[Rfam]
RNA sequence: CAGAUGAUAUAGAUGAGGCGGAGUUUGACACGAGCAUGUAUCAUUUCAGCGAGCAUAUACCUCCAUCGAGGGAAAGCAAGAGCUUGAGUGAAGCUCAUAGGAACAAUAGUAAACUGCAGAAGUGGUGCAAAAAGCAGGACAAGCUGCUCGCCAAGUGUUUCAAGACUAUCAAGUUUCUGACAGAUAAGCUGAGUUGUUCCUCCUCCACUACAGCUAUUCCG
Dot-bracket structure: (.((.....(.(..((((.(((((...........................................................................................................................................................................))))).))))..).).......)).)

The record is a 221-nucleotide RNA from Arabidopsis thaliana, which matches "MIR854 microRNA precursor family" in Rfam. It scores 191 bits against the family's covariance model.